Small nucleolar RNA SNORD71: an 86-nucleotide RNA sequence from Felis catus. It is one of the family's seed sequences. The literature on the family includes a 2001 paper in EMBO J by Huttenhofer et al., "RNomics: an experimental approach that identifies 201 candidates for novel, small, non-messenger RNAs in mouse". The family has 18 seed sequences and 556 matches in Rfam 15.1. The family's consensus secondary structure was predicted with RNAalifold. From the family's description: snoRNA HBII-239 belongs to the family of C/D snoRNAs.It is the human orthologue of the mouse MBII-239 described and is predicted to guide 2'O-ribose methylation of 5.8S rRNA on residue U14. The source organism's lineage runs through Eukaryota, Gnathostomata, Mammalia, Boreoeutheria and Felis. Gene Ontology terms of the family: nucleolus and RNA processing.
RNA sequence: GGUGUGCUGGAGGAUGAAAAUACGGAGUGAUCCAUCGGCUAAGUGAUUUAUCACAAUGCUGAAACUCAUAUUGCUGACAGCACACA
Numbered sequence: 001g002g003u004g005u006g007c008u009g010g011a012g013g014a015u016g017a018a019a020a021u022a023c024g025g026a027g028u029g030a031u032c033c034a035u036c037g038g039c040u041a042a043g044u045g046a047u048u049u050a051u052c053a054c055a056a057u058g059c060u061g062a063a064a065c066u067c068a069u070a071u072u073g074c075u076g077a078c079a080g081c082a083c084a085c086a
Stems, first nucleotide, its partner, number of pairs: 002085007009075002012033004017028001035062005043054003